[Rfam]
RNA sequence: GCACUCAUAUCCACCUCAAUCCAUGUGUGUUGGAGCGGAUUGGGAUGAAAAAUAAUUUAAGUUUCACCCCAAUCCACUUUAACACAAGUGGGUUGAGGUGAAUACGAGU
Numbered sequence: 001g002c003a004c005u006c007a008u009a010u011c012c013a014c015c016u017c018a019a020u021c022c023a024u025g026u027g028u029g030u031u032g033g034a035g036c037g038g039a040u041u042g043g044g045a046u047g048a049a050a051a052a053u054a055a056u057u058u059a060a061g062u063u064u065c066a067c068c069c070c071a072a073u074c075c076a077c078u079u080u081a082a083c084a085c086a087a088g089u090g091g092g093u094u095g096a097g098g099u100g101a102a103u104a105c106g107a108g109u
Base pairs, nucleotide, nucleotide: 004108005107006106008104009103010102012100013099014098016096017095018094019093020092021091022090023089024088026086027085028084029083030082031081032080035077037075038074039073040072041071042070043069046066047065